[Rfam]
RNA sequence: GCUCUGUGAUGAACCCCCAUGCGUGUCAUCUGAGCCUGGCUUCCUUCCCUGUUGGCUUAGCCCAGGUAGUGUUCUACUUCCCAGGGCUGUUGUCUGACCCAACAGGGGUCUGGGCAAAGGAUCAAUCUUUGCAUUCUGAGAGC
Numbered sequence: 001g002c003u004c005u006g007u008g009a010u011g012a013a014c015c016c017c018c019a020u021g022c023g024u025g026u027c028a029u030c031u032g033a034g035c036c037u038g039g040c041u042u043c044c045u046u047c048c049c050u051g052u053u054g055g056c057u058u059a060g061c062c063c064a065g066g067u068a069g070u071g072u073u074c075u076a077c078u079u080c081c082c083a084g085g086g087c088u089g090u091u092g093u094c095u096g097a098c099c100c101a102a103c104a105g106g107g108g109u110c111u112g113g114g115c116a117a118a119g120g121a122u123c124a125a126u127c128u129u130u131g132c133a134u135u136c137u138g139a140g141a142g143c
Base pairs, nucleotide, nucleotide: 001143002142003141004140047107048106049105050104051103052102053101054100055099
The family of this 143-nucleotide RNA sequence from Orycteropus afer is "Small nucleolar RNA SNORD10". It scores 124 bits against the family's covariance model. A reference for the family is Huttenhofer et al. (2001), "RNomics: an experimental approach that identifies 201 candidates for novel, small, non-messenger RNAs in mouse", EMBO J. Rfam 15.1 lists 433 matches to the family in 306 species. The family's RNA type in Rfam is C/D-box small nucleolar RNA.